[Rfam]
RNA sequence: GGUUUUUACCCAGUAUCAAAAGGUACUAGGAUGUUUUGACCGGUUCUACGAACUGUGUUUGAUAAACCAAAUUUUUUGAACGCACUCCUGGGGUUAGCCGGGAGUGUAA
Numbered sequence: 001g002g003u004u005u006u007u008a009c010c011c012a013g014u015a016u017c018a019a020a021a022g023g024u025a026c027u028a029g030g031a032u033g034u035u036u037u038g039a040c041c042g043g044u045u046c047u048a049c050g051a052a053c054u055g056u057g058u059u060u061g062a063u064a065a066a067c068c069a070a071a072u073u074u075u076u077u078g079a080a081c082g083c084a085c086u087c088c089u090g091g092g093g094u095u096a097g098c099c100g101g102g103a104g105u106g107u108a109a
Stems, first nucleotide, its partner, number of pairs: 008034001009030002013026005038059003041055005084107002087104001092099002